[Rfam]
RNA sequence: CGGCAAGGACGGCCUUGCUGCAUCCGCUUUCAACGGGGACGGCCCCA
Number, nucleotide and partner (000 for none) at each position: 001c020002g019003g018004c017005a016006a015007g014008g013009a000010c000011g000012g000013c008014c007015u006016u005017g004018c003019u002020g001021c000022a000023u000024c000025c000026g000027c000028u000029u000030u000031c000032a000033a000034c000035g046036g045037g044038g043039a000040c000041g000042g000043c038044c037045c036046c035047a000
Guanidine-II riboswitch aptamer (mini-ykkC): a 47-nucleotide RNA sequence from Paraburkholderia phymatum. Pairs were carried over by alignment from the consensus structure, which is taken from published work. It scores 47 bits against the family's covariance model. Taxonomically the source falls in Paraburkholderia phymatum (Bacteria, Betaproteobacteria, Burkholderiales, Burkholderiaceae).